[Rfam]
RNA sequence: UUUUGACCUUUAAUGGCACUGGUAGAAUUCACGGUUAUUUUAUUAGACUUCCGUGAUUUUUCUAGUGCUAUAUAUGGUUGAAA
Numbered sequence: 001u002u003u004u005g006a007c008c009u010u011u012a013a014u015g016g017c018a019c020u021g022g023u024a025g026a027a028u029u030c031a032c033g034g035u036u037a038u039u040u041u042a043u044u045a046g047a048c049u050u051c052c053g054u055g056a057u058u059u060u061u062c063u064a065g066u067g068c069u070a071u072a073u074a075u076g077g078u079u080g081a082a083a
Stems, first nucleotide, its partner, number of pairs: 003081006010074001013071006020064003025059003029056006